[Rfam]
Burkholderia RNA 7 (anti-hemB): an 83-nucleotide RNA sequence from Nitrosomonas communis. This RNA motif was identified by computational search in b-proteobacteria Burkholderia. Co-purified with Hfq, expression confirmed by Northern blot. By type it is a small RNA. The base pairs follow the family's consensus structure, which is taken from published work. The literature on the family includes a 2007 paper in Nucleic Acids Res by Weinberg et al., "Identification of 22 candidate structured RNAs in bacteria using the CMfinder comparative genomics pipeline". A search with the family's covariance model found it, with a score of 61 bits. Rfam 15.1 lists 479 matches to the family in 458 species.
RNA sequence: UCUCUCGCCUUCCCUCCCUGAGGCGGGGCCUUUGAUAUAAGGCGAUUCCCCCCGGUUUUUCCCCUUUAACCGGGGUUUUUUUU
Numbered sequence: 001u002c003u004c005u006c007g008c009c010u011u012c013c014c015u016c017c018c019u020g021a022g023g024c025g026g027g028g029c030c031u032u033u034g035a036u037a038u039a040a041g042g043c044g045a046u047u048c049c050c051c052c053c054g055g056u057u058u059u060u061c062c063c064c065u066u067u068a069a070c071c072g073g074g075g076u077u078u079u080u081u082u083u
Stems, first nucleotide, its partner, number of pairs: 004027006028043005050075008